Rfam assigns this 116-nucleotide RNA from Salirhabdus euzebyi to the family "SAM riboswitch aptamer (S box leader)". The match comes from Rfam's covariance-model search (95 bits).
RNA sequence: CUCUUAUCAAGAGAGGCAGAGGGACUGGCCCGAUGAAGCCCGGCAACCGUUCUUACAACUGUAAGAAAAGGUGCUAAUUCCAGCAAAACAAAUUUAUUUGUUUUGAAAGAUGAGAG
Numbered sequence: 001c002u003c004u005u006a007u008c009a010a011g012a013g014a015g016g017c018a019g020a021g022g023g024a025c026u027g028g029c030c031c032g033a034u035g036a037a038g039c040c041c042g043g044c045a046a047c048c049g050u051u052c053u054u055a056c057a058a059c060u061g062u063a064a065g066a067a068a069a070g071g072u073g074c075u076a077a078u079u080c081c082a083g084c085a086a087a088a089c090a091a092a093u094u095u096a097u098u099u100g101u102u103u104u105g106a107a108a109g110a111u112g113a114g115a116g
Stems, first nucleotide, its partner, number of pairs: 001116008013041001015040003021031003025083004042075004047071002050067004079108001084105008